Notes: U2 spliceosomal RNA: a 185-nucleotide RNA sequence from Chionis minor. U2 is a small nuclear RNA (snRNA) component of the spliceosome (involved in pre-mRNA splicing). Complementary binding between U2 snRNA (in an area lying towards the 5' end but 3' to hairpin I) and the branchpoint sequence (BPS) of the intron results the bulging out of an unpaired adenosine, on the BPS, which initiates a nucleophilic attack at the intronic 5' splice site, thus starting the first of two transesterification reactions that mediate splicing. A search with the family's covariance model found it, with a score of 131 bits. The family is grouped with related families in Rfam's "U2 clan". Pairs were carried over by alignment from the consensus structure, which is taken from published work. Rfam classes the family as a spliceosomal small nuclear RNA.

RNA sequence: AUCGCUUCUCGGCCUUUUGGCUAAGAGCACGUGUAGUAUCUGUUCUUAUCAGUUUAAUAUCUGAUACGUCCUCGAUGAGAGGACUUUAUAUUAAAUGGAUUUUUGGGCUCGGGAGUUGGACCCGGAGCUUGCUCCCUUUAUUUUUUGAUUCUGUGAUUCUAUGACUACAAAUCUUGGCACUAUAU
Numbered sequence: 001a002u003c004g005c006u007u008c009u010c011g012g013c014c015u016u017u018u019g020g021c022u023a024a025g026a027g028c029a030c031g032u033g034u035a036g037u038a039u040c041u042g043u044u045c046u047u048a049u050c051a052g053u054u055u056a057a058u059a060u061c062u063g064a065u066a067c068g069u070c071c072u073c074g075a076u077g078a079g080a081g082g083a084c085u086u087u088a089u090a091u092u093a094a095a096u097g098g099a100u101u102u103u104u105g106g107g108c109u110c111g112g113g114a115g116u117u118g119g120a121c122c123c124g125g126a127g128c129u130u131g132c133u134c135c136c137u138u139u140a141u142u143u144u145u146u147g148a149u150u151c152u153g154u155g156a157u158u159c160u161a162u163g164a165c166u167a168c169a170a171a172u173c174u175u176g177g178c179a180c181u182a183u184a185u
Base pairs, nucleotide, nucleotide: 007026008025009024011022012021013020014019047066048065049064050063051062052061068084069083070082071081072080073079112144113143114142115141116140118138119137124135125134126133127132147181149179151177152176153175155173156172157171158170